[Rfam]
RNA sequence: UAGGCGGAAACCGAAAAGCCUGUAAGAGAGUAGGAA
Numbered sequence: 001u002a003g004g005c006g007g008a009a010a011c012c013g014a015a016a017a018g019c020c021u022g023u024a025a026g027a028g029a030g031u032a033g034g035a036a
Base pairs, nucleotide, nucleotide: 002021003020004019005018011034012033
Shown here is a 36-nucleotide RNA, a member of the family "DUF805b RNA".
It is annotated as a cis-regulatory element.
The base pairs follow the family's consensus structure, which is taken from published work.
Clan: DUF805 clan.